[Rfam]
RNA sequence: CUCUUAUUCAGAGUGGUGGAGAUACAUAGGAUCUGAGAAGCCACGGCAACCCCGGUCACGGAAGGUGCCAGCCUGAGCGAGUAAUCGAACAAUAAGAG
Numbered sequence: 001c002u003c004u005u006a007u008u009c010a011g012a013g014u015g016g017u018g019g020a021g022a023u024a025c026a027u028a029g030g031a032u033c034u035g036a037g038a039a040g041c042c043a044c045g046g047c048a049a050c051c052c053c054g055g056u057c058a059c060g061g062a063a064g065g066u067g068c069c070a071g072c073c074u075g076a077g078c079g080a081g082u083a084a085u086c087g088a089a090c091a092a093u094a095a096g097a098g
Stems, first nucleotide, its partner, number of pairs: 001098008013044005021033003027077001030074001045069004050065002052061003078087003

This 98-nucleotide RNA from Drancourtella sp. An57 belongs to the Rfam family "SAM riboswitch aptamer (S box leader)". Lineage of the source: Bacteria > Clostridia > Eubacteriales > Oscillospiraceae > Drancourtella.